RNA sequence: AGUGGUCCUCGGGUGACUCACCCCGGAACCAGAGAGGAGGACACCUGAUUCUGGGGUGUGUCACCUGAGAACCACC
Numbered sequence: 001a002g003u004g005g006u007c008c009u010c011g012g013g014u015g016a017c018u019c020a021c022c023c024c025g026g027a028a029c030c031a032g033a034g035a036g037g038a039g040g041a042c043a044c045c046u047g048a049u050u051c052u053g054g055g056g057u058g059u060g061u062c063a064c065c066u067g068a069g070a071a072c073c074a075c076c
Stems, first nucleotide, its partner, number of pairs: 002075002005072002008069010019058005025052004030047003
Overview:
The family of this 76-nucleotide sequence from Myotis brandtii is "mir-9223 microRNA precursor family". It scores 55 bits against the family's covariance model.